[Rfam]
RNA sequence: UAAAAGCAAUGAAGUUAGAGGUUGCCGUUCAUAACAACGGGUAAUUCUAAUGGAGCGAAUGUCAUGUUCAAGAAACUGACGACAA
Numbered sequence: 001u002a003a004a005a006g007c008a009a010u011g012a013a014g015u016u017a018g019a020g021g022u023u024g025c026c027g028u029u030c031a032u033a034a035c036a037a038c039g040g041g042u043a044a045u046u047c048u049a050a051u052g053g054a055g056c057g058a059a060u061g062u063c064a065u066g067u068u069c070a071a072g073a074a075a076c077u078g079a080c081g082a083c084a085a
Base pairs, nucleotide, nucleotide: 014051015050016049018047019046020045025040026039027038028037029036060084061083062082063081066080068079069078070077
RNA: S10-Clostridia ribosomal protein leader